[Rfam]
RNA: Vault RNA
Organism: Galemys pyrenaicus
RNA sequence: GGGUUGGCUAUAGCUCAGCGGUUACUUCGUAGCCCUGCACCUACACUCAACUGCCGUAAGGUAGUUCGAGACCCGCGGGCACUCUCCAACCCUUUU
Numbered sequence: 001g002g003g004u005u006g007g008c009u010a011u012a013g014c015u016c017a018g019c020g021g022u023u024a025c026u027u028c029g030u031a032g033c034c035c036u037g038c039a040c041c042u043a044c045a046c047u048c049a050a051c052u053g054c055c056g057u058a059a060g061g062u063a064g065u066u067c068g069a070g071a072c073c074c075g076c077g078g079g080c081a082c083u084c085u086c087c088a089a090c091c092c093u094u095u096u
Base pairs, nucleotide, nucleotide: 002091003090004089005088006087007086013080014079015078016077018076019075020074021073026070027069028068029067